[Rfam]
RNA sequence: CACCCGGGACGUCCUGGGUGCGUUCCAUAUUUUUGGGGGACGUCCCCC
Numbered sequence: 001c002a003c004c005c006g007g008g009a010c011g012u013c014c015u016g017g018g019u020g021c022g023u024u025c026c027a028u029a030u031u032u033u034u035g036g037g038g039g040a041c042g043u044c045c046c047c048c
Stems, first nucleotide, its partner, number of pairs: 001020008035048005
Shown here is a 48-nucleotide sequence from Taxus chinensis, a member of the family "Guanidine-II riboswitch aptamer (mini-ykkC)".
The organism belongs to Taxus, within Eukaryota.
The family's consensus secondary structure is taken from published work.
Rfam's curators write: Simpler in structure and has fewer highly conserved nucleotide positions than the ykkC-yxkD leader. Despite this each of its two stem-loop structures directly bind free guanidine. Therefore, mini-ykkC RNA motif represents a distinct class of guanidine-sensing RNAs. Its crystal structure was also determined.